The family of this 80-nucleotide RNA from Albula goreensis is "mir-181 microRNA precursor family".
Its family is annotated with miRNA-mediated post-transcriptional gene silencing and RISC complex in the Gene Ontology.
The family's consensus secondary structure was predicted with PFOLD.
[Rfam]
RNA sequence: GAAACACAGCGAACAUUCAACGCUGUCGGUGAGUUUAUGACACAGAAAAACCAUCGAACGUUGAGUGUACCCUGCCUUUC
Numbered sequence: 001g002a003a004a005c006a007c008a009g010c011g012a013a014c015a016u017u018c019a020a021c022g023c024u025g026u027c028g029g030u031g032a033g034u035u036u037a038u039g040a041c042a043c044a045g046a047a048a049a050a051c052c053a054u055c056g057a058a059c060g061u062u063g064a065g066u067g068u069a070c071c072c073u074g075c076c077u078u079u080c
Base pairs, nucleotide, nucleotide: 001080002079003078004077007074008073014067015066016065017064018063019062020061021060022059026057027056028055029054030053031052033051034050035049036048
For this family Rfam cites "New microRNAs from mouse and human" (Lagos-Quintana et al., RNA, 2003). The family has 157 seed sequences and 3,490 matches in Rfam 15.1.